Bacterial large subunit ribosomal RNA: a 522-nucleotide part of an RNA from Pantoea sp. Nvir. It scores 2855 bits against the family's covariance model. Lineage of the source: Bacteria > Pseudomonadati > Enterobacterales > Erwiniaceae > Pantoea.

[Rfam]
RNA sequence: GAUUAAGCGUACACGGUGGAUGCCUUGGCAGUCAGAGGCGAUGAAGGACGUGCUAAUCUGCGAAAAACGCCGGUAAGGUGAUAUGAACCGUUAUAACCGGCGGUGUCCGAAUGGGGAAACCCAGUGUGAUAAAUCACACUAUUAUUAGCUCAAUACAUAGGCUAAUAAGGCAAACCGGGGGAACUGAAACAUCUAAGUACCCCGAGGAGAAGAAAUCAACCGAGAUUCCCCUAGUAGUGGCGAGCGAACGGGGAACAGCCCAGAGCCUUAAUCAGUUUGUGCAUUAGUGGAAGCGUCUGGAAAGUCGUAGGGAACAGGGUGAUACUCCCGUACACGAAAGUGCACAUGCUGUGAGCUCAAUGAGUAGGACGGGACACGUGGUAUCCUGUUUGAAUAUAGGGGGACCAUCCUCUAAGGCUAAAUACUCCUGACUGACCGAUAGUGAACUAGUACCGUGAGGGAAAGGUGAAAAGAACCCCGGUGAGGGGAGUGAAAUAGAACCUGAAACCGUGUACGUACAAG
Numbered sequence: 001g002a003u004u005a006a007g008c009g010u011a012c013a014c015g016g017u018g019g020a021u022g023c024c025u026u027g028g029c030a031g032u033c034a035g036a037g038g039c040g041a042u043g044a045a046g047g048a049c050g051u052g053c054u055a056a057u058c059u060g061c062g063a064a065a066a067a068c069g070c071c072g073g074u075a076a077g078g079u080g081a082u083a084u085g086a087a088c089c090g091u092u093a094u095a096a097c098c099g100g101c102g103g104u105g106u107c108c109g110a111a112u113g114g115g116g117a118a119a120c121c122c123a124g125u126g127u128g129a130u131a132a133a134u135c136a137c138a139c140u141a142u143u144a145u146u147a148g149c150u151c152a153a154u155a156c157a158u159a160g161g162c163u164a165a166u167a168a169g170g171c172a173a174a175c176c177g178g179g180g181g182a183a184c185u186g187a188a189a190c191a192u193c194u195a196a197g198u199a200c201c202c203c204g205a206g207g208a209g210a211a212g213a214a215a216u217c218a219a220c221c222g223a224g225a226u227u228c229c230c231c232u233a234g235u236a237g238u239g240g241c242g243a244g245c246g247a248a249c250g251g252g253g254a255a256c257a258g259c260c261c262a263g264a265g266c267c268u269u270a271a272u273c274a275g276u277u278u279g280u281g282c283a284u285u286a287g288u289g290g291a292a293g294c295g296u297c298u299g300g301a302a303a304g305u306c307g308u309a310g311g312g313a314a315c316a317g318g319g320u321g322a323u324a325c326u327c328c329c330g331u332a333c334a335c336g337a338a339a340g341u342g343c344a345c346a347u348g349c350u351g352u353g354a355g356c357u358c359a360a361u362g363a364g365u366a367g368g369a370c371g372g373g374a375c376a377c378g379u380g381g382u383a384u385c386c387u388g389u390u391u392g393a394a395u396a397u398a399g400g401g402g403g404a405c406c407a408u409c410c411u412c413u414a415a416g417g418c419u420a421a422a423u424a425c426u427c428c429u430g431a432c433u434g435a436c437c438g439a440u441a442g443u444g445a446a447c448u449a450g451u452a453c454c455g456u457g458a459g460g461g462a463a464a465g466g467u468g469a470a471a472a473g474a475a476c477c478c479c480g481g482u483g484a485g486g487g488g489a490g491u492g493a494a495a496u497a498g499a500a501c502c503u504g505a506a507a508c509c510g511u512g513u514a515c516g517u518a519c520a521a522g
Stems, first nucleotide, its partner, number of pairs: 007517010022502001023466002027437002029434007036426002038171002046108003049062003068102007077089003113122003123140007142168009175206001176204005186193002216223002226422001227254005237245002257419004263358004273351004278346008287335003293308003297304001311315001317329003367391008398413005453460002476488004